[Rfam]
RNA sequence: GCCGAGCUCAGUAACGCGAGCCUGUGACCCAAGUGGGGGCAUCAAGGUGGUGGGACCUUGGGUCAGCUCCGGAGGGCCGGGCUCAAAGUGGUAAUCAUCUGGCCUGCCCGUUCCAAGCCAGGAGUUGGGCUGUGGGUCUUCGGCGAAGGCUGGAGGCUCACUGUCCUUAGAGCUGGGGGCACCGCGUGAGGCUGGUUUCACAGAGCAGCGAUCACCCCCCGCUCCUGGCAGUGGAAGGAUUACAGGCCGGUGCUACUCGGGCCCAUUACGGUUCAAUGAGUUGGCUCAGUAGAACCAUCAUUUUU
Numbered sequence: 001g002c003c004g005a006g007c008u009c010a011g012u013a014a015c016g017c018g019a020g021c022c023u024g025u026g027a028c029c030c031a032a033g034u035g036g037g038g039g040c041a042u043c044a045a046g047g048u049g050g051u052g053g054g055a056c057c058u059u060g061g062g063u064c065a066g067c068u069c070c071g072g073a074g075g076g077c078c079g080g081g082c083u084c085a086a087a088g089u090g091g092u093a094a095u096c097a098u099c100u101g102g103c104c105u106g107c108c109c110g111u112u113c114c115a116a117g118c119c120a121g122g123a124g125u126u127g128g129g130c131u132g133u134g135g136g137u138c139u140u141c142g143g144c145g146a147a148g149g150c151u152g153g154a155g156g157c158u159c160a161c162u163g164u165c166c167u168u169a170g171a172g173c174u175g176g177g178g179g180c181a182c183c184g185c186g187u188g189a190g191g192c193u194g195g196u197u198u199c200a201c202a203g204a205g206c207a208g209c210g211a212u213c214a215c216c217c218c219c220c221g222c223u224c225c226u227g228g229c230a231g232u233g234g235a236a237g238g239a240u241u242a243c244a245g246g247c248c249g250g251u252g253c254u255a256c257u258c259g260g261g262c263c264c265a266u267u268a269c270g271g272u273u274c275a276a277u278g279a280g281u282u283g284g285c286u287c288a289g290u291a292g293a294a295c296c297a298u299c300a301u302u303u304u305u
Stems, first nucleotide, its partner, number of pairs: 001040003004023001006021004028037003044304010056292001058289003062285006070278002074274005079264006086257001088256004094251001099250008108238002111236005117229009127166004132161013167172001175218004185210003192203003
The record is a 305-nucleotide RNA from Acer saccharum, which matches "Plant signal recognition particle RNA" in Rfam. The family has 63 seed sequences and 4,988 matches in Rfam 15.1. It is annotated as a non-coding RNA gene. The organism belongs to Acer, within Eukaryota.